Source information: The record is an 87-nucleotide RNA from Ruminococcaceae bacterium D16, which matches "Glycine riboswitch aptamer" in Rfam.

[Rfam]
RNA sequence: ACGAAGCGCCCAGGAAAAUGGCCGUCGGCCUGCCGAAGGAGUAACACUCUCAGGUGUCCCUGUUGGGACGAGGACUGUGCGUGGAUG
Numbered sequence: 001a002c003g004a005a006g007c008g009c010c011c012a013g014g015a016a017a018a019u020g021g022c023c024g025u026c027g028g029c030c031u032g033c034c035g036a037a038g039g040a041g042u043a044a045c046a047c048u049c050u051c052a053g054g055u056g057u058c059c060c061u062g063u064u065g066g067g068a069c070g071a072g073g074a075c076u077g078u079g080c081g082u083g084g085a086u087g
Base pairs, nucleotide, nucleotide: 006082007081008080009079011077012076013075020030021029022028023027032055033054034053035051036050039049040048041047
Dot-bracket structure: .....((((.(((......((((...)))).(((((..(((.....))))).)))...................))).)))).....
Rfam links the family to the GO term glycine biosynthetic process. The organism belongs to Oscillospiraceae, within Bacteria.